Notes: This 86-nucleotide RNA sequence from Daucus carota belongs to the Rfam family "mir-156 microRNA precursor family". On this family, see Ambros, Cell 2001: "microRNAs: tiny regulators with great potential". About the family: This family represents the plant microRNA (miRNA) precursor mir-156. NCBI's taxonomy places the organism under Eukaryota, Mesangiospermae, Scandiceae, Daucus, Daucus carota.
RNA sequence: AUGACAGAAGAGAGUGAGCACACAUAGUAAUUUUCUUGCAAGAUGGAUAUGCUGGAAGCUCUGUGUGCUCACCCUCUAUCUGUCAU
Numbered sequence: 001a002u003g004a005c006a007g008a009a010g011a012g013a014g015u016g017a018g019c020a021c022a023c024a025u026a027g028u029a030a031u032u033u034u035c036u037u038g039c040a041a042g043a044u045g046g047a048u049a050u051g052c053u054g055g056a057a058g059c060u061c062u063g064u065g066u067g068c069u070c071a072c073c074c075u076c077u078a079u080c081u082g083u084c085a086u
Stems, first nucleotide, its partner, number of pairs: 001086008010076003014072008023063002